[Rfam]
Nucleotides: 097
Stems, first nucleotide, its partner, number of pairs: 010084004015079002018076002021073005027067004032062002036059008
Number, partner (000 for none) and nucleotide at each position: 001000c002000u003000g004000a005000g006000u007000c008000c009000u010084c011083g012082g013081g014000u015079c016078c017000c018076g019075a020000c021073u022072c023071c024070c025069a026000g027067c028066c029065g030064u031000g032062c033061g034000a035000g036059c037058c038057u039056g040055c041054u042053g043052c044000a045000c046000u047000u048000c049000c050000c051000c052043g053042c054041a055040g056039c057038a058037g059036g060000a061033c062032g063000a064030a065029c066028g067027g068000a069025u070024g071023g072022g073021g074000a075019u076018c077000g078016g079015g080000c081013c082012c083011c084010g085000g086000g087000g088000c089000c090000c091000c092000g093000g094000a095000a096000g097000g
The family of this 97-nucleotide sequence from Agromyces sp. NDB4Y10 is "mraW RNA". The base pairs follow the family's consensus structure, which is taken from published work. It scores 53 bits against the family's covariance model.